[Rfam]
RNA sequence: GUUGCAAUACCUCCAGGGUGAUCAGCGAC
Numbered sequence: 001g002u003u004g005c006a007a008u009a010c011c012u013c014c015a016g017g018g019u020g021a022u023c024a025g026c027g028a029c
Base pairs, nucleotide, nucleotide: 001029002028003027004026005025007019008018010017011016

Rfam assigns this 29-nucleotide RNA sequence from Actinomadura viridilutea to the family "CRISPR RNA direct repeat element". Lineage of the source: Bacteria > Bacillati > Actinomycetota > Actinomycetes > Actinomadura.